[Rfam]
RNA sequence: CGGGGAAACGCAGGCUCCCCGCCAGACGGCCGAUACCGUCCAAGCUCUGC
Numbered sequence: 001c002g003g004g005g006a007a008a009c010g011c012a013g014g015c016u017c018c019c020c021g022c023c024a025g026a027c028g029g030c031c032g033a034u035a036c037c038g039u040c041c042a043a044g045c046u047c048u049g050c
Stems, first nucleotide, its partner, number of pairs: 001021006010050005025040005
Dot-bracket structure: ((((((...[[[[[.))))))...(((((......))))).....]]]]]
RNA: chrB-b RNA